[Rfam]
RNA sequence: UCCGGGGGAAGCUCACUGCCGAGGCCACCCACGGGGUGCGCUGUCACCCGCGGCCCCGCCUCGGGGAAGGUCUGAGACAAGGGCCAGCGCGCGGCUCCAGCAGAGCCCCGCCCGCGAGGGGCGGGUGAGCCACCAGCAAGGGGGGGCUCCGCGCUGGGUCGGUGCUGGGCAGGAGAAGCCGCUGGUCGGCGCCGGGGAAGGGAGCAUCCCGCCCCCGCGUGGCCGGCCGCGGCGGAUGCUCGUGGCCCCGCGGAGCUUUGAGACAGACUCACGGCCGGCCAGCGAUGAGUCCAAUGGGUGAGGUGGGGCAGCGCCCCAUAACCCAAUUCAGACUACUCUCCCCCGGA
Numbered sequence: 001u002c003c004g005g006g007g008g009a010a011g012c013u014c015a016c017u018g019c020c021g022a023g024g025c026c027a028c029c030c031a032c033g034g035g036g037u038g039c040g041c042u043g044u045c046a047c048c049c050g051c052g053g054c055c056c057c058g059c060c061u062c063g064g065g066g067a068a069g070g071u072c073u074g075a076g077a078c079a080a081g082g083g084c085c086a087g088c089g090c091g092c093g094g095c096u097c098c099a100g101c102a103g104a105g106c107c108c109c110g111c112c113c114g115c116g117a118g119g120g121g122c123g124g125g126u127g128a129g130c131c132a133c134c135a136g137c138a139a140g141g142g143g144g145g146g147c148u149c150c151g152c153g154c155u156g157g158g159u160c161g162g163u164g165c166u167g168g169g170c171a172g173g174a175g176a177a178g179c180c181g182c183u184g185g186u187c188g189g190c191g192c193c194g195g196g197g198a199a200g201g202g203a204g205c206a207u208c209c210c211g212c213c214c215c216c217g218c219g220u221g222g223c224c225g226g227c228c229g230c231g232g233c234g235g236a237u238g239c240u241c242g243u244g245g246c247c248c249c250g251c252g253g254a255g256c257u258u259u260g261a262g263a264c265a266g267a268c269u270c271a272c273g274g275c276c277g278g279c280c281a282g283c284g285a286u287g288a289g290u291c292c293a294a295u296g297g298g299u300g301a302g303g304u305g306g307g308g309c310a311g312c313g314c315c316c317c318a319u320a321a322c323c324c325a326a327u328u329c330a331g332a333c334u335a336c337u338c339u340c341c342c343c344c345g346g347a
Stems, first nucleotide, its partner, number of pairs: 001347004007341003012302006020063005034049005072331005082276004093107005108124006125272005131266001145257009303319007
RNA: Nuclear RNase P
Organism: Rhinopomastus cyanomelas